[Rfam]
Rfam assigns this 117-nucleotide sequence from Channa argus to the family "U5 spliceosomal RNA". About the family: U5 RNA is a component of both types of known spliceosome. The precise function of this molecule is unknown, though it is known that the 5' loop is required for splice site selection and p220 binding, and that both the 3' stem-loop and the Sm site are important for Sm protein binding and cap methylation. Its family is annotated with spliceosomal tri-snRNP complex assembly and U5 snRNP in the Gene Ontology.
RNA sequence: UUACUCUGGUUUCUCUUCAUCACGCACAAGUCUUUCGCCUUUUACUAAAGACUUCCGUGGAGAGGAAUACCAAUGAGUAAAUUCCAUUUUUGGCAGGCUUUGCCUUCUGGCAGAGCC
Numbered sequence: 001u002u003a004c005u006c007u008g009g010u011u012u013c014u015c016u017u018c019a020u021c022a023c024g025c026a027c028a029a030g031u032c033u034u035u036c037g038c039c040u041u042u043u044a045c046u047a048a049a050g051a052c053u054u055c056c057g058u059g060g061a062g063a064g065g066a067a068u069a070c071c072a073a074u075g076a077g078u079a080a081a082u083u084c085c086a087u088u089u090u091u092g093g094c095a096g097g098c099u100u101u102g103c104c105u106u107c108u109g110g111c112a113g114a115g116c117c
Base pairs, nucleotide, nucleotide: 003078004077005076006075009068010067011066012065013064014063015062016061017060018059019058028054029053030052031051032050033049034048035047097116098115099114100113101112102111